23S methyl RNA motif: a 98-nucleotide RNA from Lactococcus garvieae. On this family, see Weinberg et al., Nucleic Acids Res 2007: "Identification of 22 candidate structured RNAs in bacteria using the CMfinder comparative genomics pipeline". Taxonomically the source falls in Lactococcus garvieae (Bacteria, Bacillota, Lactobacillales, Lactococcus).

RNA sequence: AAUUAAUUUGUUUCAAUCAACCCUGUUAUGAUUAAAGCAAAUUAGUCCCCCAACUAGGCUGCUCGCUGAGACCAUACUCCGAGCUACCUAGUUUUUAU
Numbered sequence: 001a002a003u004u005a006a007u008u009u010g011u012u013u014c015a016a017u018c019a020a021c022c023c024u025g026u027u028a029u030g031a032u033u034a035a036a037g038c039a040a041a042u043u044a045g046u047c048c049c050c051c052a053a054c055u056a057g058g059c060u061g062c063u064c065g066c067u068g069a070g071a072c073c074a075u076a077c078u079c080c081g082a083g084c085u086a087c088c089u090a091g092u093u094u095u096u097a098u
Stems, first nucleotide, its partner, number of pairs: 002046012015033005052093007061084005068079003
The match comes from Rfam's covariance-model search (75 bits). It is annotated as a cis-regulatory element.